A member of the RNA family "Small nucleolar RNA Z247" from Citrus x clementina, 142 nucleotides long. It scores 44 bits against the family's covariance model. On this family, see Chen et al., Nucleic Acids Res 2003: "The high diversity of snoRNAs in plants: identification and comparative study of 120 snoRNA genes from Oryza sativa". By type it is a C/D-box small nucleolar RNA. The organism belongs to Citrus, within Eukaryota.

RNA sequence: ACUUUGAGUGAUGAUGAUUUAAUUUUGCACAUACUCUCUGGCUUAGGUCCAUAUUAUAAUUCUGUUGCCACAUGUAUCACUAGACAAGUAGGUGUUGGGAAGAUGAAUAUUAAUGAAGCCUAUCUUAUGCUUUUAACUCAAG
Dot-bracket structure: ...(((((...............................................................................((.((((((.........)))))).))......................))))).